[Rfam]
RNA sequence: GCCGCCCAUAGGUGCUGCCUCUGCGUGGCGGGUGGCAGGCAACGGAGGAGUUCUCCGGCUAAAGCACUG
Numbered sequence: 001g002c003c004g005c006c007c008a009u010a011g012g013u014g015c016u017g018c019c020u021c022u023g024c025g026u027g028g029c030g031g032g033u034g035g036c037a038g039g040c041a042a043c044g045g046a047g048g049a050g051u052u053c054u055c056c057g058g059c060u061a062a063a064g065c066a067c068u069g
Stems, first nucleotide, its partner, number of pairs: 001036007017029003043057005
Dot-bracket structure: (((((((.........(((.......))))))))))......(((((.....)))))............
RNA: HDV ribozyme from F. prausnitzii
Organism: Enterocloster clostridioformis